SAM riboswitch aptamer (S box leader): a 100-nucleotide sequence from Clostridium saccharoperbutylacetonicum. The family's consensus secondary structure is taken from published work.
[Rfam]
RNA sequence: CUCUUAUCAAGAGAGGUGGAGGGAAAGGGCCCGAUGAAACCCGGCAACCUGUAUUAUAUAAGGUGCCAAUUCCUGUAGGAUGAUUUCUACAAGAUAAGAA
Numbered sequence: 001c002u003c004u005u006a007u008c009a010a011g012a013g014a015g016g017u018g019g020a021g022g023g024a025a026a027g028g029g030c031c032c033g034a035u036g037a038a039a040c041c042c043g044g045c046a047a048c049c050u051g052u053a054u055u056a057u058a059u060a061a062g063g064u065g066c067c068a069a070u071u072c073c074u075g076u077a078g079g080a081u082g083a084u085u086u087c088u089a090c091a092a093g094a095u096a097a098g099a100a
Base pairs, nucleotide, nucleotide: 002099003098004097005096006095007094008093013042015041016040017039021032022031023030027074028073029072043067044066045065046064048063049062050060051059052058053057071092076089077088078087079086080085